[Rfam]
RNA sequence: AGCACCGUAGCUCAGAGGUAGAGACGCCCGCUCAUAACGGGCUGGUCGAUGGUUCGAAUCCAUCCGGCGCGA
Dot-bracket structure: .((.(((...(((.......)))..(((((.......))))).....(((((.......)))))))).))..

This 72-nucleotide sequence from Phenylobacterium soli belongs to the Rfam family "tRNA". Rfam classes the family as a transfer RNA. Pairs were carried over by alignment from the consensus structure, which is taken from published work.